[Rfam]
RNA sequence: GAGAUAUGAUGAUAUAAACUUUGGUCCGUGUUUCUGAUUUAACCGUGACCGAAACCUUUUUACCAAUUUCUGAUCUC
Numbered sequence: 001g002a003g004a005u006a007u008g009a010u011g012a013u014a015u016a017a018a019c020u021u022u023g024g025u026c027c028g029u030g031u032u033u034c035u036g037a038u039u040u041a042a043c044c045g046u047g048a049c050c051g052a053a054a055c056c057u058u059u060u061u062a063c064c065a066a067u068u069u070c071u072g073a074u075c076u077c
Base pairs, nucleotide, nucleotide: 001077002076003075004074